[Rfam]
RNA sequence: UGACGUGCUCCUACACUAGGAUGUGUGGCUGCCGUGGGUUGGUGGGAACCAGGCUUGCCCAGGGUUAGUGUUCCCAGUGUUCAGU
Numbered sequence: 001u002g003a004c005g006u007g008c009u010c011c012u013a014c015a016c017u018a019g020g021a022u023g024u025g026u027g028g029c030u031g032c033c034g035u036g037g038g039u040u041g042g043u044g045g046g047a048a049c050c051a052g053g054c055u056u057g058c059c060c061a062g063g064g065u066u067a068g069u070g071u072u073c074c075c076a077g078u079g080u081u082c083a084g085u
Stems, first nucleotide, its partner, number of pairs: 001083003006079004013071005019066001022063001024061002027059003031054003037050004
Dot-bracket structure: (((..((((...(((((.(..(.((.(((.(((...((((......)))).)))..))))).)..))))))....)))).)))..
The record is an 85-nucleotide RNA from Cnephaeus nilssonii, which matches "mir-9215 microRNA precursor family" in Rfam. The base pairs follow the family's consensus structure, which was predicted with RNAalifold.